Fluoride riboswitch aptamer (crcB RNA motif): a 62-nucleotide RNA from Pseudothermotoga lettingae. Gene Ontology terms of the family: positive regulation of gene expression and response to fluoride.
Nucleotides: 062
Stems, first nucleotide, its partner, number of pairs: 010025004016053006033043003
Number, partner (000 for none) and nucleotide at each position: 001000a002000a003000u004000a005000a006000g007000c008000c009000u010025g011024g012023u013022g014000a015000u016053g017052g018051a019050g020049u021048c022013c023012a024011c025010c026000g027000u028000u029000a030000u031000u032000u033043g034042c035041c036000u037000u038000a039000a040000a041035g042034g043033c044000u045000g046000a047000u048021g049020a050019c051018u052017c053016c054000u055000a056000c057000u058000u059000g060000a061000a062000u